The family of this 99-nucleotide sequence from Cerasicoccus arenae is "Bacterial small signal recognition particle RNA". Lineage of the source: Bacteria > Pseudomonadati > Verrucomicrobiota > Opitutia > Cerasicoccus. Rfam links the family to the GO terms signal recognition particle, plasma membrane targeting and SRP-dependent cotranslational protein targeting to membrane, signal sequence recognition. The family's consensus secondary structure is taken from published work. The family's RNA type in Rfam is non-coding RNA gene. The literature on the family includes a 2003 paper in Nucleic Acids Res by Rosenblad et al., "SRPDB: Signal Recognition Particle Database". From the family's description: The signal recognition particle (SRP) is a universally conserved ribonucleoprotein involved in the co-translational targeting of proteins to membranes. The match comes from Rfam's covariance-model search (64 bits).
[Rfam]
RNA sequence: GGCCGGGUCCUGUGCAACGUCGAACCGGUGAAUCCCCCCAGAUCCGGAAGGAAGCAAGGGCAGCUAGGAUUCACGUGUGCCGCAGGGUGCCUGGCCACU
Numbered sequence: 001g002g003c004c005g006g007g008u009c010c011u012g013u014g015c016a017a018c019g020u021c022g023a024a025c026c027g028g029u030g031a032a033u034c035c036c037c038c039c040a041g042a043u044c045c046g047g048a049a050g051g052a053a054g055c056a057a058g059g060g061c062a063g064c065u066a067g068g069a070u071u072c073a074c075g076u077g078u079g080c081c082g083c084a085g086g087g088u089g090c091c092u093g094g095c096c097a098c099u
Stems, first nucleotide, its partner, number of pairs: 004093005009086006015077001017076004022071001025067001027065003035060003043052003